[Rfam]
RNA sequence: CCCGCCACUACCCCUGCCUGCCUGGGUGGCUGGUGUACUCCAGUGGGGGCUGAGAGCGACCCAGCUCUAGGAAGCAGGACUGCCCUAAAACACGUGGGCAUUUCUGUGCCGAAAGAUCUGGAACAAAU
Dot-bracket structure: ....(((((......(((.((......).).))).......)))))..............((((.(.(.((...(((((...(((..........)))...)))))..))..).)..)))).......

Rfam assigns this 128-nucleotide RNA from Albula goreensis to the family "Small nucleolar RNA SNORA65".
U65 belongs to the H/ACA class of snoRNAs which are thought to guide the sites of modification of uridines to pseudouridines.
Rfam classes the family as an H/ACA-box small nucleolar RNA.
A search with the family's covariance model found it, with a score of 87 bits.
The organism belongs to Albula, within Eukaryota.